[Rfam]
A member of the RNA family "SAM-I/IV (S-adenosyl methionine) riboswitch aptamer" from Sphingomonas gellani, 107 nucleotides long.
Its family is annotated with regulation of gene expression and S-adenosylmethionine metabolic process in the Gene Ontology.
Lineage of the source: Bacteria > Pseudomonadati > Alphaproteobacteria > Sphingomonadaceae > Sphingomonas.
The base pairs follow the family's consensus structure, which is taken from published work.
RNA sequence: CUCCAGCAUCAAGAGUCGGGCCGACGUCCGACACCAACCUGCUCCCGGGCAAGGUGGUGGCUCCUCAACGGGGGGAUGUGGCCGGACCGGCAAACUCGGGACCAGAC
Number, nucleotide and partner (000 for none) at each position: 001c000002u000003c000004c000005a000006g079007c078008a077009u076010c075011a000012a000013g000014a000015g032016u000017c030018g029019g028020g027021c026022c000023g000024a000025c000026g021027u020028c019029c018030g017031a000032c015033a058034c057035c056036a000037a000038c054039c053040u052041g050042c049043u048044c000045c000046c000047g000048g043049g042050c041051a000052a040053g039054g038055u000056g035057g034058u033059g000060g000061c000062u000063c000064c000065u000066c000067a000068a000069c000070g000071g000072g000073g000074g000075g010076a009077u008078g007079u006080g000081g091082c090083c089084g088085g000086a000087c000088c084089g083090g082091c081092a000093a000094a000095c000096u000097c000098g000099g000100g000101a000102c000103c000104a000105g000106a000107c000